[Rfam]
Nucleotides: 127
Base pairs, nucleotide, nucleotide: 018062019061020060021059022058023040024039025038026037027036028035041053042052043051044050074102075101076100077099078098083097084096085095086094087093114126115125116124117122
Number, partner (000 for none) and nucleotide at each position: 001000u002000g003000c004000g005000a006000u007000g008000a009000g010000u011000c012000g013000a014000g015000a016000u017000a018062a019061a020060u021059c022058a023040g024039a025038c026037a027036g028035u029000a030000c031000u032000u033000g034000u035028a036027c037026u038025g039024u040023u041053c042052c043051g044050c045000u046000g047000c048000u049000g050044g051043c052042g053041g054000c055000u056000a057000g058022u059021g060020a061019u062018u063000a064000u065000u066000u067000c068000a069000a070000c071000c072000g073000g074102c075101a076100c077099a078098c079000g080000u081000a082000u083097u084096c085095u086094a087093u088000c089000g090000u091000a092000u093087a094086u095085a096084g097083a098078g099077u100076g101075u102074g103000a104000g105000a106000u107000a108000u109000c110000a111000a112000u113000g114126a115125u116124g117122u118000g119000u120000g121000a122117a123000c124116c125115g126114u127000c
Shown here is a 127-nucleotide RNA from Pediococcus claussenii, a member of the family "Enterococcus sRNA 68 (Lacto-3 RNA)". The family's RNA type in Rfam is small RNA. The organism belongs to Pediococcus claussenii, within Bacteria.